[Rfam]
RNA sequence: GGCUACCUUCCUUGCGGUGAGGCAUUAACGAACCAGGUCAGGCGGGAAACCGAGCAGCCUUAAGUUUUUGUUUCAGGUGCUUGGGAGGUAGUCUCU
Numbered sequence: 001g002g003c004u005a006c007c008u009u010c011c012u013u014g015c016g017g018u019g020a021g022g023c024a025u026u027a028a029c030g031a032a033c034c035a036g037g038u039c040a041g042g043c044g045g046g047a048a049a050c051c052g053a054g055c056a057g058c059c060u061u062a063a064g065u066u067u068u069u070g071u072u073u074c075a076g077g078u079g080c081u082u083g084g085g086a087g088g089u090a091g092u093c094u095c096u
Stems, first nucleotide, its partner, number of pairs: 004090008014080001015077001018075005024069001027066003035060004043052003
RNA: Bacterial small signal recognition particle RNA